Rfam assigns this 55-nucleotide sequence from Yersinia frederiksenii to the family "L31-Gammaproteobacteria ribosomal protein leader".
Rfam classes the family as a cis-regulatory leader.
The family's consensus secondary structure is taken from published work.
A reference for the family is Eckert and Weinberg (2020), "Discovery of 20 novel ribosomal leader candidates in bacteria and archaea", BMC Microbiol.

[Rfam]
Nucleotides: 055
Base pairs, nucleotide, nucleotide: 001039002038003037004036005035007033008032011028012027013026014025015024
Number, partner (000 for none) and nucleotide at each position: 001039c002038g003037u004036g005035u006000g007033g008032u009000g010000u011028c012027u013026g014025g015024c016000g017000g018000a019000g020000u021000a022000g023000g024015g025014c026013u027012g028011g029000a030000u031000a032008g033007c034000g035005a036004c037003g038002c039001g040000g041000c042000c043000u044000a045000a046000a047000u048000a049000u050000a051000g052000a053000g054000g055000u

NCBI's taxonomy places the organism under Bacteria, Pseudomonadati, Pseudomonadota, Yersiniaceae, Yersinia frederiksenii.